[Rfam]
RNA: Glycine riboswitch aptamer
RNA sequence: UAACACCCGGUGGGAGAAGCGGGGCAACCCGCUGCCGAAGGCGCAACGCCCGUAAUCGCUCAGGCUCCCGUACCACCGCCGCGAA
Numbered sequence: 001u002a003a004c005a006c007c008c009g010g011u012g013g014g015a016g017a018a019g020c021g022g023g024g025c026a027a028c029c030c031g032c033u034g035c036c037g038a039a040g041g042c043g044c045a046a047c048g049c050c051c052g053u054a055a056u057c058g059c060u061c062a063g064g065c066u067c068c069c070g071u072a073c074c075a076c077c078g079c080c081g082c083g084a085a
Stems, first nucleotide, its partner, number of pairs: 008078006019032004034065003037061002041059003047052001